This 98-nucleotide RNA from Triplophysa rosa belongs to the Rfam family "Vault RNA".
[Rfam]
RNA sequence: GCAUUGGCUUGGCUCAGGGGUUACUUCUUUCAAAAACAAAUUCUGCACCGCAGAGUUUCCUGAAUAGGAUCGAACCCCGGGCAUUGUCCUGUGCUUUU
Numbered sequence: 001g002c003a004u005u006g007g008c009u010u011g012g013c014u015c016a017g018g019g020g021u022u023a024c025u026u027c028u029u030u031c032a033a034a035a036a037c038a039a040a041u042u043c044u045g046c047a048c049c050g051c052a053g054a055g056u057u058u059c060c061u062g063a064a065u066a067g068g069a070u071c072g073a074a075c076c077c078c079g080g081g082c083a084u085u086g087u088c089c090u091g092u093g094c095u096u097u098u
Stems, first nucleotide, its partner, number of pairs: 002093003006089002012082004017078004025074003